[Rfam]
RNA sequence: AGAAAAAAAAAGGGGACCACAGCAGAAGAGUUCACAUUGUGGCUCCUGUCCGAUUCCAACGAACCUGCAAAUUCUGCU
Numbered sequence: 001a002g003a004a005a006a007a008a009a010a011a012g013g014g015g016a017c018c019a020c021a022g023c024a025g026a027a028g029a030g031u032u033c034a035c036a037u038u039g040u041g042g043c044u045c046c047u048g049u050c051c052g053a054u055u056c057c058a059a060c061g062a063a064c065c066u067g068c069a070a071a072u073u074c075u076g077c078u
Stems, first nucleotide, its partner, number of pairs: 013046003017042002021078007028040001030038001050067001052065001054063003
Shown here is a 78-nucleotide RNA sequence from Alligator sinensis, a member of the family "Mammalian CPEB3 ribozyme". Rfam's curators write: The mammalian CPEB3 ribozyme is a self cleaving RNA located in the second intron of the CPEB3 gene which belongs to a family of genes regulating messenger RNA polyadenylation. Taxonomically the source falls in Alligator (Eukaryota, Metazoa, Sauria, Crocodylia). It scores 57 bits against the family's covariance model.